The family of this 240-nucleotide RNA sequence from Arabidopsis thaliana is "MIR854 microRNA precursor family". The base pairs follow the family's consensus structure, which was predicted with WAR.
[Rfam]
RNA sequence: CGGAUGAGGAUAGAGAAGUGGAGUAUGACACAAGCAUGUAUCAAUUUAGAGAGCAUGUAUCACUUUAGAGAGCAUGUACCUCCAGCGAGGGAGAGCAAGAGCUUGAGUGAGGCUCAUAGAAACAACAUCAUGUUGUAGAAGUGGUGCAAAAAACAUGAUAAGUUCAUCAUCAAAUGCCUAAAGACCAUCAAGGCUCUGAAGGCUAUGAUAAACUUCACCUCUUCCACUACAGCUAUUCUG
Numbered sequence: 001c002g003g004a005u006g007a008g009g010a011u012a013g014a015g016a017a018g019u020g021g022a023g024u025a026u027g028a029c030a031c032a033a034g035c036a037u038g039u040a041u042c043a044a045u046u047u048a049g050a051g052a053g054c055a056u057g058u059a060u061c062a063c064u065u066u067a068g069a070g071a072g073c074a075u076g077u078a079c080c081u082c083c084a085g086c087g088a089g090g091g092a093g094a095g096c097a098a099g100a101g102c103u104u105g106a107g108u109g110a111g112g113c114u115c116a117u118a119g120a121a122a123c124a125a126c127a128u129c130a131u132g133u134u135g136u137a138g139a140a141g142u143g144g145u146g147c148a149a150a151a152a153a154c155a156u157g158a159u160a161a162g163u164u165c166a167u168c169a170u171c172a173a174a175u176g177c178c179u180a181a182a183g184a185c186c187a188u189c190a191a192g193g194c195u196c197u198g199a200a201g202g203c204u205a206u207g208a209u210a211a212a213c214u215u216c217a218c219c220u221c222u223u224c225c226a227c228u229a230c231a232g233c234u235a236u237u238c239u240g
Stems, first nucleotide, its partner, number of pairs: 001240004011229001013227001015224004020219002023216001025214001